[Rfam]
RNA: SAM riboswitch aptamer (S box leader)
Organism: Pinibacter aurantiacus
RNA sequence: UACUUAUCAAGAAAGGCUGAGGGACAUGGCCCUUUGAAGCCUUGGCAACCUGCAAUUCGAUUCACAUCGAAGAAGUAAGGUGCCAAUUCCACCCCGAUGGAUUUUAUUCGGGACAGAUAAGUC
Number, nucleotide and partner (000 for none) at each position: 001u000002a122003c121004u120005u119006a118007u117008c116009a000010a000011g000012a000013a043014a042015g041016g040017c039018u000019g000020a000021g032022g031023g030024a000025c000026a000027u091028g090029g089030c023031c022032c021033u000034u000035u000036g000037a000038a000039g017040c016041c015042u014043u013044g084045g083046c082047a081048a000049c080050c079051u077052g076053c075054a000055a000056u000057u000058c000059g000060a000061u000062u000063c000064a000065c000066a000067u000068c000069g000070a000071a000072g000073a000074a000075g053076u052077a051078a000079g050080g049081u047082g046083c045084c044085a000086a000087u000088u115089c029090c028091a027092c000093c112094c111095c110096g109097a108098u000099g000100g000101a000102u000103u000104u000105u000106a000107u000108u097109c096110g095111g094112g093113a000114c000115a088116g008117a007118u006119a005120a004121g003122u002123c000